[Rfam]
RNA sequence: UACCCUCCACGUGACUGGCGAGACGGGGAGCACCCCGAGGGAGCGUGGAGGACCGUUUCGAUGCCGCUCGCCUGGGCAGCCUUC
Number, nucleotide and partner (000 for none) at each position: 001u000002a000003c000004c051005c050006u049007c048008c047009a046010c045011g044012u043013g000014a000015c040016u039017g072018g071019c070020g069021a068022g000023a000024c000025g036026g035027g034028g033029a000030g000031c000032a000033c028034c027035c026036c025037g000038a000039g016040g015041g000042a000043g012044c011045g010046u009047g008048g007049a006050g005051g004052a000053c000054c000055g000056u000057u000058u000059c000060g000061a000062u078063g077064c076065c075066g000067c000068u021069c020070g019071c018072c017073u000074g000075g065076g064077c063078a062079g000080c000081c000082u000083u000084c000